The family of this 107-nucleotide sequence from Rhodovulum iodosum is "Guanidine-I riboswitch aptamer".
Taxonomically the source falls in Rhodovulum (Bacteria, Pseudomonadati, Pseudomonadota, Alphaproteobacteria).
For this family Rfam cites "An uncommon [K(+)(Mg(2+))2] metal ion triad imparts stability and selectivity to the Guanidine-I riboswitch" (Trachman RJ 3rd and Ferre-D'Amare, RNA, 2021).
The match comes from Rfam's covariance-model search (78 bits).
Rfam's curators write: This family represents a conserved RNA structure found upstream of the ykkC and yxkD genes in Bacillus subtilis and related genes in other bacteria.
RNA sequence: GCGCAGGGCACUUAGGGUUCCGCCCGGAUACCGGGGACUGGUCCAAGAAGUGCCGCCGGGGCGGCAAAUUCCGCCAAGGUACACGGCGGGCCAAAAUCCCGGGAGAG
Numbered sequence: 001g002c003g004c005a006g007g008g009c010a011c012u013u014a015g016g017g018u019u020c021c022g023c024c025c026g027g028a029u030a031c032c033g034g035g036g037a038c039u040g041g042u043c044c045a046a047g048a049a050g051u052g053c054c055g056c057c058g059g060g061g062c063g064g065c066a067a068a069u070u071c072c073g074c075c076a077a078g079g080u081a082c083a084c085g086g087c088g089g090g091c092c093a094a095a096a097u098c099c100c101g102g103g104a105g106a107g
Base pairs, nucleotide, nucleotide: 007054008053009052010051011050012049015044016043020041021040022038023035024034025033026032027031055080056079057078060075061074062073063072064071082102084105088100089099090098